[Rfam]
RNA sequence: CUGUGAGUAAGUCCUUCCCGAAACGGAUGAGGCUACCUUGAGGUAGAUGGGACAAAGUAGGGAAGGGUUCACAC
Numbered sequence: 001c002u003g004u005g006a007g008u009a010a011g012u013c014c015u016u017c018c019c020g021a022a023a024c025g026g027a028u029g030a031g032g033c034u035a036c037c038u039u040g041a042g043g044u045a046g047a048u049g050g051g052a053c054a055a056a057g058u059a060g061g062g063a064a065g066g067g068u069u070c071a072c073a074c
Stems, first nucleotide, its partner, number of pairs: 002073005012067008033046005
A member of the RNA family "DUF3800-X RNA", 74 nucleotides long. The sequence is in the family's curated seed alignment.